Background
The record is a 131-nucleotide RNA from Cnephaeus nilssonii, which matches "Small nucleolar RNA SNORA38" in Rfam. Rfam 15.1 lists 628 matches to the family in 149 species. Taxonomically the source falls in Cnephaeus (Eukaryota, Mammalia, Theria, Yangochiroptera). About the family: ACA38 is a member of the H/ACA class of snoRNA that guide the sites of modification of uridines to pseudouridines.
[Rfam]
RNA sequence: UUCUCCUACAAAGGCGUAUCUGUGGUUCCCUGUCUUUGGGCACGUAAUAAUUGGAGGCAAAGAAAUGUGGACUUAGAGAAGUCUUGGACCGGCUUGCUCUCUGCAGGCUCAAGAUCAACCAUCCCACAUAG
Numbered sequence: 001u002u003c004u005c006c007u008a009c010a011a012a013g014g015c016g017u018a019u020c021u022g023u024g025g026u027u028c029c030c031u032g033u034c035u036u037u038g039g040g041c042a043c044g045u046a047a048u049a050a051u052u053g054g055a056g057g058c059a060a061a062g063a064a065a066u067g068u069g070g071a072c073u074u075a076g077a078g079a080a081g082u083c084u085u086g087g088a089c090c091g092g093c094u095u096g097c098u099c100u101c102u103g104c105a106g107g108c109u110c111a112a113g114a115u116c117a118a119c120c121a122u123c124c125c126a127c128a129u130a131g
Stems, first nucleotide, its partner, number of pairs: 002057005015044003019040003024030002069124003073121001091109007